[Rfam]
The family of this 146-nucleotide RNA from Salmonella enterica is "Short Intergenic Abundant RNA". The sequence is in the family's curated seed alignment. It is annotated as an antitoxin RNA. This family contains multiple ncRNA from E. coli that were identified in a large scale screen of E. coli, were they were called candidates 43,55 and 61. These RNAs have also been identified by other groups and called QUAD RNAs. Pairs were carried over by alignment from the consensus structure, which was predicted with PFOLD. The family has 17 seed sequences and 111 matches in Rfam 15.1. The literature on the family includes a 2001 paper in Genes Dev by Wassarman et al., "Identification of novel small RNAs using comparative genomics and microarrays".
RNA sequence: UUGACAUUAUUCUUGAUGUGGCUUAACGUCAGGAGUGAGGGUAAGGGAGGAUUCCUCCUCCCCCUGGUGUCUUAGUAAGCUGGUAGGCUAAUCACUAAGAGUAUCACCAGUAUGAUGACUACCUUCAUCAUAACCCUUUCCUUAUU
Number, nucleotide and partner (000 for none) at each position: 001u000002u000003g000004a000005c000006a000007u000008u000009a000010u000011u000012c000013u000014u000015g000016a000017u000018g000019u000020g000021g000022c000023u000024u000025a000026a000027c000028g000029u000030c000031a142032g141033g140034a139035g000036u000037g138038a137039g136040g135041g134042u133043a000044a000045g062046g061047g060048a000049g000050g000051a000052u000053u000054c000055c000056u000057c000058c000059u000060c047061c046062c045063c000064c110065u109066g108067g107068u000069g000070u000071c000072u000073u000074a000075g000076u000077a000078a000079g000080c000081u000082g000083g000084u000085a000086g000087g000088c000089u000090a000091a000092u000093c000094a000095c000096u000097a000098a000099g000100a000101g000102u000103a000104u000105c000106a000107c067108c066109a065110g064111u132112a131113u130114g129115a128116u127117g126118a000119c000120u000121a000122c000123c000124u000125u000126c117127a116128u115129c114130a113131u112132a111133a042134c041135c040136c039137u038138u037139u034140c033141c032142u031143u000144a000145u000146u000